[Rfam]
RNA sequence: AAAUUGAUUUUGCGUACGAAUGUUUGAAUGUUAAAUUUAUGCGCGUAAUAAAAGUAAACGAAAAUGAAUUUUUUUUUAAAAAAACAUUAUUAAUUAAUUUAAAAGUUUACGAAUGAAUUUGAAUAAAAACACGUACGAUCGAAUUCGAAAAAUACGUUUAAUUUUUUUUUAUUGAAACGAAUUUAUGUUAAUUGAA
Numbered sequence: 001a002a003a004u005u006g007a008u009u010u011u012g013c014g015u016a017c018g019a020a021u022g023u024u025u026g027a028a029u030g031u032u033a034a035a036u037u038u039a040u041g042c043g044c045g046u047a048a049u050a051a052a053a054g055u056a057a058a059c060g061a062a063a064a065u066g067a068a069u070u071u072u073u074u075u076u077u078a079a080a081a082a083a084a085c086a087u088u089a090u091u092a093a094u095u096a097a098u099u100u101a102a103a104a105g106u107u108u109a110c111g112a113a114u115g116a117a118u119u120u121g122a123a124u125a126a127a128a129a130c131a132c133g134u135a136c137g138a139u140c141g142a143a144u145u146c147g148a149a150a151a152a153u154a155c156g157u158u159u160a161a162u163u164u165u166u167u168u169u170u171a172u173u174g175a176a177a178c179g180a181a182u183u184u185a186u187g188u189u190a191a192u193u194g195a196a
Stems, first nucleotide, its partner, number of pairs: 005194001007193001009191002012188005021043002025039005048055002063091005070083003094177001095175001097173001098171001104165002
Record summary
A member of the RNA family "Eukaryotic large subunit ribosomal RNA" from Heterodermia speciosa, 196 nucleotides of a longer RNA. The organism belongs to Heterodermia, within Eukaryota.